Background:
A member of the RNA family "mir-399 microRNA precursor family" from Aegilops tauschii, 116 nucleotides long. The organism belongs to Aegilops tauschii, within Eukaryota.
RNA sequence: AGCUGAAUUGCUGGGCAGGGUCUCCUUUGGCAGAUGUUGGCGCCGUCCGACACCAAUGUGUGUCGGUGGUUGGCGGCCGGGCUGCUGCCAAAGGAAAUUUGUCCCGGAAUUCAUCU
Numbered sequence: 001a002g003c004u005g006a007a008u009u010g011c012u013g014g015g016c017a018g019g020g021u022c023u024c025c026u027u028u029g030g031c032a033g034a035u036g037u038u039g040g041c042g043c044c045g046u047c048c049g050a051c052a053c054c055a056a057u058g059u060g061u062g063u064c065g066g067u068g069g070u071u072g073g074c075g076g077c078c079g080g081g082c083u084g085c086u087g088c089c090a091a092a093g094g095a096a097a098u099u100u101g102u103c104c105c106g107g108a109a110u111u112c113a114u115c116u
Stems, first nucleotide, its partner, number of pairs: 005112005011106001013104007023095003028090006036082003

Rfam 15.1 lists 2,396 matches to the family in 221 species. About the family: mir-399 was identified in both Arabidopsis thaliana and Oryza sativa computationally and was later experimentally verified. mir-399 is thought to target mRNAs coding for a phosphatase transporter. The mature sequence is excised from the 3' arm of the hairpin. It scores 60 bits against the family's covariance model.